[Rfam]
RNA sequence: AGCCGGGUCCUGUGCAAUAGAUGCUCCCGAACCCCGUCAGGUCCGGAAGGAAGCAGCGGUAGGGACCCUCUCUAUGUGCCGCAGGUUAACCUGGCUAUC
Numbered sequence: 001a002g003c004c005g006g007g008u009c010c011u012g013u014g015c016a017a018u019a020g021a022u023g024c025u026c027c028c029g030a031a032c033c034c035c036g037u038c039a040g041g042u043c044c045g046g047a048a049g050g051a052a053g054c055a056g057c058g059g060u061a062g063g064g065a066c067c068c069u070c071u072c073u074a075u076g077u078g079c080c081g082c083a084g085g086u087u088a089a090c091c092u093g094g095c096u097a098u099c
Base pairs, nucleotide, nucleotide: 004093005092006091007090008089009085010084011083012082013081014080015076017075018074019073020072021071023067025065026064027063028062034059035058036057037056042051043050044049
Rfam assigns this 99-nucleotide RNA sequence from Candidatus Zymogenus saltonus to the family "Bacterial small signal recognition particle RNA". The family's consensus secondary structure is taken from published work. A search with the family's covariance model found it, with a score of 79 bits. Clan: SRP clan. The literature on the family includes a 2003 paper in Nucleic Acids Res by Rosenblad et al., "SRPDB: Signal Recognition Particle Database". The signal recognition particle (SRP) is a universally conserved ribonucleoprotein involved in the co-translational targeting of proteins to membranes.